[Rfam]
RNA sequence: UUGAAGCUCCAUCCACAAAUGGAUAAGAUUUCGGUCUUUGUGUAUACGAGUUUUUAAAAUAACGGAGUAAUACCGACCCUCUUGCAAUACCAAUAAAUUGGUAUUGCUCCGUUAUU
Numbered sequence: 001u002u003g004a005a006g007c008u009c010c011a012u013c014c015a016c017a018a019a020u021g022g023a024u025a026a027g028a029u030u031u032c033g034g035u036c037u038u039u040g041u042g043u044a045u046a047c048g049a050g051u052u053u054u055u056a057a058a059a060u061a062a063c064g065g066a067g068u069a070a071u072a073c074c075g076a077c078c079c080u081c082u083u084g085c086a087a088u089a090c091c092a093a094u095a096a097a098u099u100g101g102u103a104u105u106g107c108u109c110c111g112u113u114a115u116u
Stems, first nucleotide, its partner, number of pairs: 008023005061113013076099001080095001082093002

The family of this 116-nucleotide sequence is "Plastid-psbA-1 3UTR RNA". Plastid psbA-1 is a non-coding RNA (ncRNA) present in plastids. On this family, see Richter et al., Plant Commun 2023: "Retrograde signaling in plants: A critical review focusing on the GUN pathway and beyond". Rfam classes the family as a cis-regulatory element.